[Rfam]
transfer-messenger RNA: a 363-nucleotide RNA sequence from Enterococcus aquimarinus. It scores 214 bits against the family's covariance model. The family is grouped with related families in Rfam's "tRNA clan". It is annotated as a non-coding RNA gene. Bacterial tmRNA, also known as 10Sa RNA or SsrA, is named for its dual tRNA and mRNA-like properties. Its role is to liberate the mRNA from a stalled ribosome. To accomplish this part of the tmRNA is used as a reading frame that ends in a translation stop signal.
RNA sequence: GGGGACGUUACGGAUUCGACAGGCAUAGUUUGAGCCUGAAUUGCGCUCCGUAGGUUACGUCUACGUUAAAACGUUACAGUUAAUAUAACUGCAAACAAUAAUAACUCUUACGCUUUAGCUGCCUAAAAACAGUUAGCGUAGAUCCUCCUGUCAUCACCCAUGUGCCAGAUCAGGGUCCUAAUUAAGUGGGAUACGCUGUGUCUUUUCCGUCUGGAAAGCACAGAAGAGAUAAUCAGACUAGCGAAGAGAUUGGCCUGUCAUUCGGCAAGUUUCCAAGCGAAAUUCUAAUUGAACUGACUAUGAGCGUAGACUUUUAGGUAGCGAUAUGUUUGGACGCGGGUUCAACUCCCGCCGUCUCCAUAC
Numbered sequence: 001g002g003g004g005a006c007g008u009u010a011c012g013g014a015u016u017c018g019a020c021a022g023g024c025a026u027a028g029u030u031u032g033a034g035c036c037u038g039a040a041u042u043g044c045g046c047u048c049c050g051u052a053g054g055u056u057a058c059g060u061c062u063a064c065g066u067u068a069a070a071a072c073g074u075u076a077c078a079g080u081u082a083a084u085a086u087a088a089c090u091g092c093a094a095a096c097a098a099u100a101a102u103a104a105c106u107c108u109u110a111c112g113c114u115u116u117a118g119c120u121g122c123c124u125a126a127a128a129a130c131a132g133u134u135a136g137c138g139u140a141g142a143u144c145c146u147c148c149u150g151u152c153a154u155c156a157c158c159c160a161u162g163u164g165c166c167a168g169a170u171c172a173g174g175g176u177c178c179u180a181a182u183u184a185a186g187u188g189g190g191a192u193a194c195g196c197u198g199u200g201u202c203u204u205u206u207c208c209g210u211c212u213g214g215a216a217a218g219c220a221c222a223g224a225a226g227a228g229a230u231a232a233u234c235a236g237a238c239u240a241g242c243g244a245a246g247a248g249a250u251u252g253g254c255c256u257g258u259c260a261u262u263c264g265g266c267a268a269g270u271u272u273c274c275a276a277g278c279g280a281a282a283u284u285c286u287a288a289u290u291g292a293a294c295u296g297a298c299u300a301u302g303a304g305c306g307u308a309g310a311c312u313u314u315u316a317g318g319u320a321g322c323g324a325u326a327u328g329u330u331u332g333g334a335c336g337c338g339g340g341u342u343c344a345a346c347u348c349c350c351g352c353c354g355u356c357u358c359c360a361u362a363c
Base pairs, nucleotide, nucleotide: 001359002358003357004356005355006354007353020332021331022330023329024328025327026326027325029323034319035318036317037316038315039314040313044306045305046304047303048302049065050064051063052062053061054077055076057074058073059072060071115136116135117134118133119132120131121130141177142176143175144174145173148168149167150166152164153163154162157190158189159188160187161186196223197222198221199220200219201218203216204215209239212236214234241278242277246273247272248271249270250269253266254265255264257298258297259296260295261292262291336352337351338350339349340348